This 333-nucleotide part of an RNA from Tenacibaculum jejuense belongs to the Rfam family "Bacterial large subunit ribosomal RNA". The family's consensus secondary structure is taken from published work. Taxonomically the source falls in Tenacibaculum (Bacteria, Pseudomonadati, Bacteroidota, Flavobacteriales). It scores 2752 bits against the family's covariance model.
[Rfam]
RNA sequence: CGAGAGAUUCAUGGCUAAGGAACUAGGCAAAAUCGACCUGUAACUUCGGGAGAAAGGUCGCCUACUUCGGUAGGCCGCAGUGAAAAGAUCCAGGCGACUGUUUAUCAAAAACACAGGGCUUUGCUAAAUUGAAAGAUGAUGUAUAAGGCCUGACACCUGCCCGGUGCUGGAAGGUUAAGUGGAGGGUUUAGCUUCGGCGAAGAUCUAAAAUGAAGCCCCAGUAAACGGCGGCCGUAACUAUAACGGUCCUAAGGUAGCGAAAUUCCUUGUCGGGUAAGUUCCGACCUGCACGAAUGGUGCAACGAUCUGGAUACUGUCUCAGCCAUGAGCUCG
Numbered sequence: 001c002g003a004g005a006g007a008u009u010c011a012u013g014g015c016u017a018a019g020g021a022a023c024u025a026g027g028c029a030a031a032a033u034c035g036a037c038c039u040g041u042a043a044c045u046u047c048g049g050g051a052g053a054a055a056g057g058u059c060g061c062c063u064a065c066u067u068c069g070g071u072a073g074g075c076c077g078c079a080g081u082g083a084a085a086a087g088a089u090c091c092a093g094g095c096g097a098c099u100g101u102u103u104a105u106c107a108a109a110a111a112c113a114c115a116g117g118g119c120u121u122u123g124c125u126a127a128a129u130u131g132a133a134a135g136a137u138g139a140u141g142u143a144u145a146a147g148g149c150c151u152g153a154c155a156c157c158u159g160c161c162c163g164g165u166g167c168u169g170g171a172a173g174g175u176u177a178a179g180u181g182g183a184g185g186g187u188u189u190a191g192c193u194u195c196g197g198c199g200a201a202g203a204u205c206u207a208a209a210a211u212g213a214a215g216c217c218c219c220a221g222u223a224a225a226c227g228g229c230g231g232c233c234g235u236a237a238c239u240a241u242a243a244c245g246g247u248c249c250u251a252a253g254g255u256a257g258c259g260a261a262a263u264u265c266c267u268u269g270u271c272g273g274g275u276a277a278g279u280u281c282c283g284a285c286c287u288g289c290a291c292g293a294a295u296g297g298u299g300c301a302a303c304g305a306u307c308u309g310g311a312u313a314c315u316g317u318c319u320c321a322g323c324c325a326u327g328a329g330c331u332c333g
Stems, first nucleotide, its partner, number of pairs: 001333004009328008018319003035059005044049001060075006076080001088312007095304002099113003116151008124141001128137003154299004159229003164226002166222005173217003179211002184206005191198002230248006249253001259286001269285006